[Rfam]
RNA sequence: AGUCCCUGACCCAGAGAGAGUGGCACCUGGUCUGUGGUGCCAGCCUCGUGUAUCAGUCUGGGGCAAAGCAAUUCCUAGUUUAUCGCAGCUUGGCUUCCGGUCUGUGCUGGUGCCUGGUUCAUGUCCUGAACACAUGA
Numbered sequence: 001a002g003u004c005c006c007u008g009a010c011c012c013a014g015a016g017a018g019a020g021u022g023g024c025a026c027c028u029g030g031u032c033u034g035u036g037g038u039g040c041c042a043g044c045c046u047c048g049u050g051u052a053u054c055a056g057u058c059u060g061g062g063g064c065a066a067a068g069c070a071a072u073u074c075c076u077a078g079u080u081u082a083u084c085g086c087a088g089c090u091u092g093g094c095u096u097c098c099g100g101u102c103u104g105u106g107c108u109g110g111u112g113c114c115u116g117g118u119u120c121a122u123g124u125c126c127u128g129a130a131c132a133c134a135u136g137a
Stems, first nucleotide, its partner, number of pairs: 002064005008058001011056001014053001018047003022041006078131005092125003099120002102117003106113002
Overview: A member of the RNA family "Small nucleolar RNA SNORA48" from Suricata suricatta, 137 nucleotides long. The family is grouped with related families in Rfam's "SNORA48 clan". The snoRNA ACA 48 has been identified to guide pseudouridylation of the residue U3797 in the 28S rRNA subunit. Its family is annotated with nucleolus and RNA processing in the Gene Ontology. The source organism's lineage runs through Eukaryota, Teleostomi, Tetrapoda, Feliformia and Suricata. The base pairs follow the family's consensus structure, which was predicted with RNAalifold.